[Rfam]
RNA: Group II catalytic intron D1-D4-7
Organism: Neglectibacter sp. 59
RNA sequence: CCCGCUAUUCCGUUAGCGGUAGCCUAGUGCCACCUGCAUCAGAAGUAAUGACGGUGUUGGGAAGCUGGCAUGACAAAGUAGCCCUCCACGUAAGUGGUAAAGCCGAAGCCGUGAGGCAGAAGCGAAUCUGCGAGCAUCAAUGCAGUUAGGGAG
Numbered sequence: 001c002c003c004g005c006u007a008u009u010c011c012g013u014u015a016g017c018g019g020u021a022g023c024c025u026a027g028u029g030c031c032a033c034c035u036g037c038a039u040c041a042g043a044a045g046u047a048a049u050g051a052c053g054g055u056g057u058u059g060g061g062a063a064g065c066u067g068g069c070a071u072g073a074c075a076a077a078g079u080a081g082c083c084c085u086c087c088a089c090g091u092a093a094g095u096g097g098u099a100a101a102g103c104c105g106a107a108g109c110c111g112u113g114a115g116g117c118a119g120a121a122g123c124g125a126a127u128c129u130g131c132g133a134g135c136a137u138c139a140a141u142g143c144a145g146u147u148a149g150g151g152a153g
Stems, first nucleotide, its partner, number of pairs: 002019006028070005033061003036057005044049001086097004102123002109116002128145005